Shown here is a 76-nucleotide RNA sequence from Austrofundulus limnaeus, a member of the family "mir-202 microRNA precursor family".
RNA sequence: CUGUUCCUUUUUCCUAUGCAUAUACUUCUUUGACUCGUAACUUUAAAGAGGCAUAAGGCAUGGGAAAAUGGGGCUG
Numbered sequence: 001c002u003g004u005u006c007c008u009u010u011u012u013c014c015u016a017u018g019c020a021u022a023u024a025c026u027u028c029u030u031u032g033a034c035u036c037g038u039a040a041c042u043u044u045a046a047a048g049a050g051g052c053a054u055a056a057g058g059c060a061u062g063g064g065a066a067a068a069u070g071g072g073g074c075u076g
Stems, first nucleotide, its partner, number of pairs: 010067010021055003025051008

Gene Ontology terms of the family: RISC complex and miRNA-mediated post-transcriptional gene silencing. For this family Rfam cites "Identification of hundreds of conserved and nonconserved human microRNAs" (Bentwich et al., Nat Genet, 2005).